[Rfam]
RNA sequence: ACAAAUAAUGGCGAUGGAGCUCGCCAUAACCGCCCUUGGGCUAAUGGCUCCUACCUAGAA
Numbered sequence: 001a002c003a004a005a006u007a008a009u010g011g012c013g014a015u016g017g018a019g020c021u022c023g024c025c026a027u028a029a030c031c032g033c034c035c036u037u038g039g040g041c042u043a044a045u046g047g048c049u050c051c052u053a054c055c056u057a058g059a060a
Stems, first nucleotide, its partner, number of pairs: 010025004016051006032041003

Shown here is a 60-nucleotide sequence from Desulforamulus ruminis, a member of the family "Fluoride riboswitch aptamer (crcB RNA motif)". Lineage of the source: Bacteria > Bacillota > Clostridia > Peptococcaceae > Desulforamulus ruminis. It scores 58 bits against the family's covariance model.